[Rfam]
RNA sequence: UUCUAAUGAUGCAACUUGCACAUGUCUUACGCCUUGGCUUCACCAGAACCUGUAAAGGUGAACCCACUGGUGUAGCCUUGGUGAGAAGGGGAUGAUGUGUUGAGGUUAUCAACGGUCUGAAGAAG
Numbered sequence: 001u002u003c004u005a006a007u008g009a010u011g012c013a014a015c016u017u018g019c020a021c022a023u024g025u026c027u028u029a030c031g032c033c034u035u036g037g038c039u040u041c042a043c044c045a046g047a048a049c050c051u052g053u054a055a056a057g058g059u060g061a062a063c064c065c066a067c068u069g070g071u072g073u074a075g076c077c078u079u080g081g082u083g084a085g086a087a088g089g090g091g092a093u094g095a096u097g098u099g100u101u102g103a104g105g106u107u108a109u110c111a112a113c114g115g116u117c118u119g120a121a122g123a124a125g
Base pairs, nucleotide, nucleotide: 001124002123003122004121

A member of the RNA family "Small nucleolar RNA SNORD22" from Danionella cerebrum, 125 nucleotides long. The source organism's lineage runs through Eukaryota, Metazoa, Chordata, Actinopteri and Danionella. It scores 81 bits against the family's covariance model. The family's RNA type in Rfam is C/D-box small nucleolar RNA. The family has 49 seed sequences and 1,081 matches in Rfam 15.1. On this family, see Tycowski et al., Nature 1996: "A mammalian gene with introns instead of exons generating stable RNA products". The base pairs follow the family's consensus structure, which was predicted with PFOLD.